Shown here is a 125-nucleotide RNA from Carlito syrichta, a member of the family "Small nucleolar RNA SNORA40". Rfam's curators write: The snoRNA ACA 40 belongs to the H/ACA family of snoRNAs and guides the pseudouridylation of 28S rRNA subunit at position U4565. Pairs were carried over by alignment from the consensus structure, which was predicted with RNAalifold. NCBI's taxonomy places the organism under Eukaryota, Eumetazoa, Vertebrata, Mammalia, Carlito.
RNA sequence: AGCAUUUGAAAUAUGCUUAAAAGUUGGUGAGAUUGAUGAACAGAGAGGUGCUUAAAAUAUAUUCUCUUUUGUACCCUAGAACUCAUUGUUCAGUAUGAGUUUUGAUAUAUAUAAGAAGGAAUAUU
Numbered sequence: 001a002g003c004a005u006u007u008g009a010a011a012u013a014u015g016c017u018u019a020a021a022a023g024u025u026g027g028u029g030a031g032a033u034u035g036a037u038g039a040a041c042a043g044a045g046a047g048g049u050g051c052u053u054a055a056a057a058u059a060u061a062u063u064c065u066c067u068u069u070u071g072u073a074c075c076c077u078a079g080a081a082c083u084c085a086u087u088g089u090u091c092a093g094u095a096u097g098a099g100u101u102u103u104g105a106u107a108u109a110u111a112u113a114a115g116a117a118g119g120a121a122u123a124u125u
Stems, first nucleotide, its partner, number of pairs: 001052007011037002015033001017031002023028001061122005067116005077104010